Glycine riboswitch aptamer: a 91-nucleotide RNA sequence from Aurantimonas sp. Leaf443.
Rfam links the family to the GO term glycine biosynthetic process.
It scores 72 bits against the family's covariance model.
The base pairs follow the family's consensus structure.
Lineage of the source: Bacteria > Pseudomonadati > Pseudomonadota > Aurantimonadaceae > Aurantimonas.

RNA sequence: CGACGCCUAGCGGGAGAGACCGGCCCUCAAGGCCGGCGCCGAAGGAGCAACCGCCCCGGAAACUCUCAGGCAAAAGGACCGCCUGGCGUCA
Numbered sequence: 001c002g003a004c005g006c007c008u009a010g011c012g013g014g015a016g017a018g019a020c021c022g023g024c025c026c027u028c029a030a031g032g033c034c035g036g037c038g039c040c041g042a043a044g045g046a047g048c049a050a051c052c053g054c055c056c057c058g059g060a061a062a063c064u065c066u067c068a069g070g071c072a073a074a075a076g077g078a079c080c081g082c083c084u085g086g087c088g089u090c091a
Stems, first nucleotide, its partner, number of pairs: 006086002010082004020036004038071003041067002045065003051059002